[Rfam]
RNA sequence: GGUUGGACAAAACUAUGGUUUUGUUUUCAAGAGAAUUUGGUUUCCGGGGCGGGGAGCU
Dot-bracket structure: ..(((((((((........))))))..)))........(((((((......)))))))